[Rfam]
RNA sequence: AAGCGUACCAUAGAAAAAACAUGUAUAAGCUCGAUAAUAUGGUUUGAGCGUUUCUACUUAGUGACCGUAAAUCACUAAACUACUUGUGAGGAUGAAACAUCU
Numbered sequence: 001a002a003g004c005g006u007a008c009c010a011u012a013g014a015a016a017a018a019a020c021a022u023g024u025a026u027a028a029g030c031u032c033g034a035u036a037a038u039a040u041g042g043u044u045u046g047a048g049c050g051u052u053u054c055u056a057c058u059u060a061g062u063g064a065c066c067g068u069a070a071a072u073c074a075c076u077a078a079a080c081u082a083c084u085u086g087u088g089a090g091g092a093u094g095a096a097a098c099a100u101c102u
Stems, first nucleotide, its partner, number of pairs: 019087003023083003029049006058078007
Description
A member of the RNA family "Purine riboswitch aptamer" from Gracilibacillus halophilus, 102 nucleotides long. Lineage of the source: Bacteria > Bacilli > Caryophanales > Bacillaceae > Gracilibacillus halophilus. It scores 79 bits against the family's covariance model.